RNA: 6C RNA
Organism: Cryptosporangium aurantiacum
RNA sequence: GCGGGUUCGGCUCGGCCCCCCCGGAGCCGGACCCCGGACGGUCCCCGCCCACCCCCCCGGCGGGGACCGUCCCCU
Numbered sequence: 001g002c003g004g005g006u007u008c009g010g011c012u013c014g015g016c017c018c019c020c021c022c023g024g025a026g027c028c029g030g031a032c033c034c035c036g037g038a039c040g041g042u043c044c045c046c047g048c049c050c051a052c053c054c055c056c057c058c059g060g061c062g063g064g065g066a067c068c069g070u071c072c073c074c075u
Stems, first nucleotide, its partner, number of pairs: 002036002004033010037071013